[Rfam]
RNA sequence: AUAGUAGAGGUUUUUAGCUACCCUCUUUAAAAAACUAAGGAAAC
Numbered sequence: 001a002u003a004g005u006a007g008a009g010g011u012u013u014u015u016a017g018c019u020a021c022c023c024u025c026u027u028u029a030a031a032a033a034a035c036u037a038a039g040g041a042a043a044c
Base pairs, nucleotide, nucleotide: 006026007025008024009023010022015037016036
Annotation:
The record is a 44-nucleotide RNA from Peribacillus saganii, which matches "PreQ1 (pre queuosine) riboswitch aptamer" in Rfam. Rfam's curators write: This family is a bacterial riboswitch that binds to the metabolite preQ1, an intermediate in the biosynthesis of the modified nucleoside queuosine from GTP. One example of this riboswitch is located in the leader of the Bacillus subtilis ykvJKLM (queCDEF) operon which encodes four genes necessary for queuosine production. PreQ1 binding to the riboswitch aptamer is thought to induce premature transcription termination within the leader to down-regulate expression of these genes. For this family Rfam cites "A riboswitch separated from its ribosome-binding site still regulates translation" (Schroeder et al., Nucleic Acids Res, 2023). NCBI's taxonomy places the organism under Bacteria, Bacilli, Caryophanales, Bacillaceae, Peribacillus. Pairs were carried over by alignment from the consensus structure. The match comes from Rfam's covariance-model search (42 bits).